[Rfam]
RNA sequence: GGGGGCGAAAUUGGUUUCGACAGGGGUAAUGAACUUUUAGUAGCGAGCAGUUGUUAGGAACAACUUAAAAAGCCUAAACAAAAAUAAACGAAAACAAUAAUUUAGCUUACGCAGCAUAAUAGCGUCAUCCGAGGUAGAAGGCCCACGGUCUACUAAGGGUGUCAAAUUAAGUGGGACACGAAACUUCGCAAUGGUUCUAACGAAGUGGGUAUUAAGAACCGCGCCUUGCAGCAGCUGUCAGUAGCUAACUGCUAUGGUCUAUAAGAACUGACUGCGCUCGGAGAGACUGAUUCGGAUUUACUUUUGGACGCGGGUUCGACUCCCGCCGCCUCCACCA
Numbered sequence: 001g002g003g004g005g006c007g008a009a010a011u012u013g014g015u016u017u018c019g020a021c022a023g024g025g026g027u028a029a030u031g032a033a034c035u036u037u038u039a040g041u042a043g044c045g046a047g048c049a050g051u052u053g054u055u056a057g058g059a060a061c062a063a064c065u066u067a068a069a070a071a072g073c074c075u076a077a078a079c080a081a082a083a084a085u086a087a088a089c090g091a092a093a094a095c096a097a098u099a100a101u102u103u104a105g106c107u108u109a110c111g112c113a114g115c116a117u118a119a120u121a122g123c124g125u126c127a128u129c130c131g132a133g134g135u136a137g138a139a140g141g142c143c144c145a146c147g148g149u150c151u152a153c154u155a156a157g158g159g160u161g162u163c164a165a166a167u168u169a170a171g172u173g174g175g176a177c178a179c180g181a182a183a184c185u186u187c188g189c190a191a192u193g194g195u196u197c198u199a200a201c202g203a204a205g206u207g208g209g210u211a212u213u214a215a216g217a218a219c220c221g222c223g224c225c226u227u228g229c230a231g232c233a234g235c236u237g238u239c240a241g242u243a244g245c246u247a248a249c250u251g252c253u254a255u256g257g258u259c260u261a262u263a264a265g266a267a268c269u270g271a272c273u274g275c276g277c278u279c280g281g282a283g284a285g286a287c288u289g290a291u292u293c294g295g296a297u298u299u300a301c302u303u304u305u306g307g308a309c310g311c312g313g314g315u316u317c318g319a320c321u322c323c324c325g326c327c328g329c330c331u332c333c334a335c336c337a
Stems, first nucleotide, its partner, number of pairs: 001333007021306009034294001037290005044280005049065005054077005114123002126161005134153004142175005183206006193220006223258003227254001228252004233246003237272004242265001310326005

The family of this 337-nucleotide RNA sequence from Peptoniphilus duerdenii is "transfer-messenger RNA".
Pairs were carried over by alignment from the consensus structure, which is taken from published work.
Bacterial tmRNA, also known as 10Sa RNA or SsrA, is named for its dual tRNA and mRNA-like properties. Its role is to liberate the mRNA from a stalled ribosome. To accomplish this part of the tmRNA is used as a reading frame that ends in a translation stop signal.